This 600-nucleotide part of an RNA from Emiliania huxleyi belongs to the Rfam family "Eukaryotic large subunit ribosomal RNA". Lineage of the source: Eukaryota > Haptista > Haptophyta > Noelaerhabdaceae > Emiliania huxleyi.
RNA sequence: UCAGCGGGGAAAGAAGACCCUGUUGAGCUUGACUCUAGUCUGUUACUGUGGAACGACUUGAUGGGUGUAGAAUAUGCGGGAGGGGCAACCCGACAGUGAAAUACCGCAACCGUCAACGUUGUUUUACUUACUCGGUGGCGCGGAGGGAGGCUCGCCUCACUUCUGGAUCCAAGCCGCUUCGUGCGCGCGAUCCGCGUCGGGGACACUAACAGGUGGGGAGUUUGGCUGGGGCGGCACGUCUGUUAAAAAAUAACGCAGGCGCCCGAUUUUGAGCUCAAUGAGAACAGAAAUCUCAUGUGGACCGAAAGGGGAAAAGCUCGGUUGAUUUUGAUUUUCAGUACGAAUACAAACCGCGAAAGCGUGGCCUAUCGAUCCUCUCGUCUUUGGGAAUUUCAAGCUAGAGGUGUCAGAAAAGUUACCACAGGGAUAACUGGCUUGUGGCUGCCAAGCGUUCAUAGCGACGUAGCUUUUUGAUCCUUCGAUGUCGGCUCUUCCUAUCACUGCCUCGCAGCGGGGGCCAAAUGCAGGAUUGUUCACCCACCAACAGGGAACGUGAGCUGGGUUUAGACCGUCGUGAGACAGGUUAGUUUUACCCUACUG
Numbered sequence: 001u002c003a004g005c006g007g008g009g010a011a012a013g014a015a016g017a018c019c020c021u022g023u024u025g026a027g028c029u030u031g032a033c034u035c036u037a038g039u040c041u042g043u044u045a046c047u048g049u050g051g052a053a054c055g056a057c058u059u060g061a062u063g064g065g066u067g068u069a070g071a072a073u074a075u076g077c078g079g080g081a082g083g084g085g086c087a088a089c090c091c092g093a094c095a096g097u098g099a100a101a102u103a104c105c106g107c108a109a110c111c112g113u114c115a116a117c118g119u120u121g122u123u124u125u126a127c128u129u130a131c132u133c134g135g136u137g138g139c140g141c142g143g144a145g146g147g148a149g150g151c152u153c154g155c156c157u158c159a160c161u162u163c164u165g166g167a168u169c170c171a172a173g174c175c176g177c178u179u180c181g182u183g184c185g186c187g188c189g190a191u192c193c194g195c196g197u198c199g200g201g202g203a204c205a206c207u208a209a210c211a212g213g214u215g216g217g218g219a220g221u222u223u224g225g226c227u228g229g230g231g232c233g234g235c236a237c238g239u240c241u242g243u244u245a246a247a248a249a250a251u252a253a254c255g256c257a258g259g260c261g262c263c264c265g266a267u268u269u270u271g272a273g274c275u276c277a278a279u280g281a282g283a284a285c286a287g288a289a290a291u292c293u294c295a296u297g298u299g300g301a302c303c304g305a306a307a308g309g310g311g312a313a314a315a316g317c318u319c320g321g322u323u324g325a326u327u328u329u330g331a332u333u334u335u336c337a338g339u340a341c342g343a344a345u346a347c348a349a350a351c352c353g354c355g356a357a358a359g360c361g362u363g364g365c366c367u368a369u370c371g372a373u374c375c376u377c378u379c380g381u382c383u384u385u386g387g388g389a390a391u392u393u394c395a396a397g398c399u400a401g402a403g404g405u406g407u408c409a410g411a412a413a414a415g416u417u418a419c420c421a422c423a424g425g426g427a428u429a430a431c432u433g434g435c436u437u438g439u440g441g442c443u444g445c446c447a448a449g450c451g452u453u454c455a456u457a458g459c460g461a462c463g464u465a466g467c468u469u470u471u472u473g474a475u476c477c478u479u480c481g482a483u484g485u486c487g488g489c490u491c492u493u494c495c496u497a498u499c500a501c502u503g504c505c506u507c508g509c510a511g512c513g514g515g516g517g518c519c520a521a522a523u524g525c526a527g528g529a530u531u532g533u534u535c536a537c538c539c540a541c542c543a544a545c546a547g548g549g550a551a552c553g554u555g556a557g558c559u560g561g562g563u564u565u566a567g568a569c570c571g572u573c574g575u576g577a578g579a580c581a582g583g584u585u586a587g588u589u590u591u592a593c594c595c596u597a598c599u600g
Base pairs, nucleotide, nucleotide: 002600003599004598007596008595009594011591012590019425020424021423022422024421025420026417027416028415029414030413032221033220034219035218039213040212041211042210043209044208045207048127049126050125051124052123053122054121055120056119057118058116059115060114061113062112063111064110075108076107077106078105079104082091083090131201132200133199134198135197141194142193143192144191149156150155173188174187175185176184177183224237225235226234227233238260239259240258241257242256243255263364264363269321270320271319272318273317274316275301276300278296279295280294281293282292283291302311303310326350327349328348331345332344333343334342352361353360354359375403376402377401378400380398383397384396385395386394434475436473438472440468441467442466443465444464445463449459450458486561487559488558489557490556491553492550493549494548495547496546499524500523503518504517505516506515507514527539528538530536567585568584569583570582571580572579573578
A search with the family's covariance model found it, with a score of 3078 bits.